The family of this 97-nucleotide RNA sequence from Lachnospiraceae bacterium MD329 is "pemK RNA". The match comes from Rfam's covariance-model search (60 bits). Taxonomically the source falls in Lachnospiraceae (Bacteria, Bacillati, Clostridia, Lachnospirales).
RNA sequence: UUAAAGAUACUUCUGCUUAGUCAUAGUCCGAGCGUUAAAAGCGUCACAGGCAUUGAGGGCAGCCCGGUCUGAAGACGGGGAGGUGAAAUUCCUAUGG
Numbered sequence: 001u002u003a004a005a006g007a008u009a010c011u012u013c014u015g016c017u018u019a020g021u022c023a024u025a026g027u028c029c030g031a032g033c034g035u036u037a038a039a040a041g042c043g044u045c046a047c048a049g050g051c052a053u054u055g056a057g058g059g060c061a062g063c064c065c066g067g068u069c070u071g072a073a074g075a076c077g078g079g080g081a082g083g084u085g086a087a088a089u090u091c092c093u094a095u096g097g
Base pairs, nucleotide, nucleotide: 012094013062014061015060016059017058018057063080064079065078067076068075069074081093082092083091